This 192-nucleotide sequence from [Enterobacter] lignolyticus belongs to the Rfam family "Manganese Mn2+ riboswitch aptamer (yybP-ykoY)". The base pairs follow the family's consensus structure.
[Rfam]
RNA sequence: GCGCCCGUCGUUGGGGAGUAGCCGAUUUCCUUACCCGGGAAAUGUAUACGUCAACAUACUCGUUUAAAAAAACGUGGCGUAUACGGAUCAUCUUCUGCAUUGCCGAAGGUGCUCAGGCGAGACCAUUGAUACAUCAACUGCUGUUUACUGGGGGCAGUGAUGUGUCAUAUGGAUUAUCCCCGGUCAGGACUC
Number, nucleotide and partner (000 for none) at each position: 001g000002c000003g000004c000005c000006c000007g000008u000009c000010g000011u000012u000013g000014g000015g000016g000017a000018g000019u000020a000021g000022c000023c000024g000025a000026u041027u040028u000029c000030c000031u000032u000033a000034c000035c000036c000037g000038g000039g000040a027041a026042a000043u000044g084045u083046a082047u081048a080049c079050g078051u077052c076053a075054a000055c000056a000057u000058a000059c000060u000061c074062g073063u072064u071065u070066a000067a000068a000069a000070a065071a064072a063073c062074g061075u053076g052077g051078c050079g049080u048081a047082u046083a045084c044085g000086g192087a191088u189089c188090a000091u186092c000093u000094u000095c000096u000097g000098c000099a000100u000101u000102g000103c000104c000105g000106a000107a000108g000109g000110u000111g000112c000113u000114c000115a000116g000117g000118c000119g000120a000121g000122a000123c000124c000125a000126u000127u000128g000129a000130u000131a000132c000133a000134u000135c000136a000137a000138c000139u000140g000141c000142u000143g000144u000145u000146u000147a000148c000149u000150g000151g000152g000153g000154g000155c000156a000157g000158u000159g000160a000161u000162g000163u000164g000165u000166c000167a000168u000169a000170u000171g000172g000173a000174u000175u000176a000177u000178c000179c000180c000181c000182g000183g000184u000185c000186a091187g000188g089189a088190c000191u087192c086